RNA sequence: AAAUAAAAAGUAAUUGCGUGCGUGCAAUCAACUUUUCCCCCUCGAUUCGUCUUGUACGAUUCACUCUCUAACGAACUUAAAAUUGUGGCAUAUGUCACAGUGGGUUUCGUUCUGCUGUGCGUGUGCUACGCUUUGAUUUAAGUGAAGCUUUUGUGUCUUCAGCUUCCCUCUUCUCCUCGUGGGGUUCCGUUCCCGCGGUAGUGAGCCUGGUGUGGUUCCGCCCGCGCCAGUGAUGGAGGGUGCUUUAGGCACUAACAAGCUUAGAUCUAUGGUGUC
Numbered sequence: 001a002a003a004u005a006a007a008a009a010g011u012a013a014u015u016g017c018g019u020g021c022g023u024g025c026a027a028u029c030a031a032c033u034u035u036u037c038c039c040c041c042u043c044g045a046u047u048c049g050u051c052u053u054g055u056a057c058g059a060u061u062c063a064c065u066c067u068c069u070a071a072c073g074a075a076c077u078u079a080a081a082a083u084u085g086u087g088g089c090a091u092a093u094g095u096c097a098c099a100g101u102g103g104g105u106u107u108c109g110u111u112c113u114g115c116u117g118u119g120c121g122u123g124u125g126c127u128a129c130g131c132u133u134u135g136a137u138u139u140a141a142g143u144g145a146a147g148c149u150u151u152u153g154u155g156u157c158u159u160c161a162g163c164u165u166c167c168c169u170c171u172u173c174u175c176c177u178c179g180u181g182g183g184g185u186u187c188c189g190u191u192c193c194c195g196c197g198g199u200a201g202u203g204a205g206c207c208u209g210g211u212g213u214g215g216u217u218c219c220g221c222c223c224g225c226g227c228c229a230g231u232g233a234u235g236g237a238g239g240g241u242g243c244u245u246u247a248g249g250c251a252c253u254a255a256c257a258a259g260c261u262u263a264g265a266u267c268u269a270u271g272g273u274g275u276c
Stems, first nucleotide, its partner, number of pairs: 007035005013028005047059004085129004091123003097118008180195005207230009
The family of this 276-nucleotide RNA sequence from Betacoronavirus cororeum is "Betacoronavirus 5'UTR". Its family is annotated with viral RNA genome replication in the Gene Ontology. The family is grouped with related families in Rfam's "Coronavirus 5' UTR". Rfam's curators write: The first 150 to 200 nucleotides within the 5' UTR of betacoronaviruses are highly structured and shown to be conserved on a structure level among betacoronaviruses. It has been predicted to contain 3 conserved stem-loops (SL1, SL2 and SL4). SARS-CoV and BCoV have an additional stem-loop, called SL3, which contains the TRS-L sequence in its loop region. However, according to predictions, SL3 is not stable in other betacoronaviruses like MHV. SL1 is important for viral replication, most likely playing a role in the template-switch of viral subgenomic RNA transcription. The match comes from Rfam's covariance-model search (133 bits). The base pairs follow the family's consensus structure. A reference for the family is Goebel et al. (2004), "The 3' cis-acting genomic replication element of the severe acute respiratory syndrome coronavirus can function in the murine coronavirus genome", J Virol.